[Rfam]
The record is a 198-nucleotide RNA from Agrilus planipennis, which matches "R2 RNA element" in Rfam. This family represents the 3' UTR region of the R2 retrotransposable element. This family is known to interact with the R2-encoded reverse transcriptase in a reaction known as target primed reverse transcription (TPRT). Rfam links the family to the GO term regulation of reverse transcription.

RNA sequence: AUUUUCUAAACCUACUAUUGCUUCUAAUCAUGUGCUUCCCAAUACAUCCAACGGCUGAAGACGACCUUCAUUGGUCCUAGAACGGCCUGAGGUGGAGGGGUUUUAGUCGGUAGGUCCGAGGACCUCCUCGGGAAUCCGACACUACCCAGUCGUAUGGACGGCUGGGUGUCUUUUGAAGAGUUCCCUUCUUUCACGAAA
Numbered sequence: 001a002u003u004u005u006c007u008a009a010a011c012c013u014a015c016u017a018u019u020g021c022u023u024c025u026a027a028u029c030a031u032g033u034g035c036u037u038c039c040c041a042a043u044a045c046a047u048c049c050a051a052c053g054g055c056u057g058a059a060g061a062c063g064a065c066c067u068u069c070a071u072u073g074g075u076c077c078u079a080g081a082a083c084g085g086c087c088u089g090a091g092g093u094g095g096a097g098g099g100g101u102u103u104u105a106g107u108c109g110g111u112a113g114g115u116c117c118g119a120g121g122a123c124c125u126c127c128u129c130g131g132g133a134a135u136c137c138g139a140c141a142c143u144a145c146c147c148a149g150u151c152g153u154a155u156g157g158a159c160g161g162c163u164g165g166g167u168g169u170c171u172u173u174u175g176a177a178g179a180g181u182u183c184c185c186u187u188c189u190u191u192c193a194c195g196a197a198a
Stems, first nucleotide, its partner, number of pairs: 067197003071193001091192002094189002097185003106140005115132007142168001144167005
Dot-bracket structure: ..................................................................(((.(...................((.((.(((......(((((....(((((((....)))))))...))))).(.(((((..............))))))..............)))..)).))).))).
A reference for the family is Ruschak et al. (2004), "Secondary structure models of the 3' untranslated regions of diverse R2 RNAs", RNA.